[Rfam]
This 363-nucleotide sequence from Kangiella geojedonensis belongs to the Rfam family "Bacterial RNase P class A". The organism belongs to Kangiella, within Bacteria. From the family's description: Ribonuclease P (RNase P) is a ubiquitous endoribonuclease, found in archaea, bacteria and eukarya as well as chloroplasts and mitochondria. By type it is a ribozyme. The family's consensus secondary structure is taken from published work. A reference for the family is Brown (1999), "The Ribonuclease P Database", Nucleic Acids Res.
RNA sequence: AAAGCUGGCCAGACAGUCGCUGCCUAUGACUUCAUAGGGAGAGGAAAGUCCGGACUUCACAGAGCAGGGUGCCAGGUAACGCCUGGGCGGCGCAAGCCGACGGCAAGUGCAGCAGAAAGAAGACCGCCGAUGGUUCUUAGUUCGCUAAGUUCACAGGUAAGGGCGAAAGGGUGCGGUAAGAGCGCACCGCGCUACUGGUAACAGCUAGCGGCGAGGUAAACCCCACCCGAAGCAAGACCAAAUAGGGUUCCGUACGGCGUUGCUCGCGUUGGAACCGGGUAGGUUGCUGGAGCCAUCGAGUGAUUGAUGGCCUAGACGAAUGACUGUCCACGACAGAAUCCGGCUUAUCGGCCAGCUUUUCUU
Numbered sequence: 001a002a003a004g005c006u007g008g009c010c011a012g013a014c015a016g017u018c019g020c021u022g023c024c025u026a027u028g029a030c031u032u033c034a035u036a037g038g039g040a041g042a043g044g045a046a047a048g049u050c051c052g053g054a055c056u057u058c059a060c061a062g063a064g065c066a067g068g069g070u071g072c073c074a075g076g077u078a079a080c081g082c083c084u085g086g087g088c089g090g091c092g093c094a095a096g097c098c099g100a101c102g103g104c105a106a107g108u109g110c111a112g113c114a115g116a117a118a119g120a121a122g123a124c125c126g127c128c129g130a131u132g133g134u135u136c137u138u139a140g141u142u143c144g145c146u147a148a149g150u151u152c153a154c155a156g157g158u159a160a161g162g163g164c165g166a167a168a169g170g171g172u173g174c175g176g177u178a179a180g181a182g183c184g185c186a187c188c189g190c191g192c193u194a195c196u197g198g199u200a201a202c203a204g205c206u207a208g209c210g211g212c213g214a215g216g217u218a219a220a221c222c223c224c225a226c227c228c229g230a231a232g233c234a235a236g237a238c239c240a241a242a243u244a245g246g247g248u249u250c251c252g253u254a255c256g257g258c259g260u261u262g263c264u265c266g267c268g269u270u271g272g273a274a275c276c277g278g279g280u281a282g283g284u285u286g287c288u289g290g291a292g293c294c295a296u297c298g299a300g301u302g303a304u305u306g307a308u309g310g311c312c313u314a315g316a317c318g319a320a321u322g323a324c325u326g327u328c329c330a331c332g333a334c335a336g337a338a339u340c341c342g343g344c345u346u347a348u349c350g351g352c353c354a355g356c357u358u359u360u361c362u363u
Stems, first nucleotide, its partner, number of pairs: 001359010011348001012328007020041002023038006046346003050343005055232004062265004067228005072086005087101001088099004102223002107221002109217002124162002126158003131153003170188006189212001190210005195204003236285004246276006256270005292311008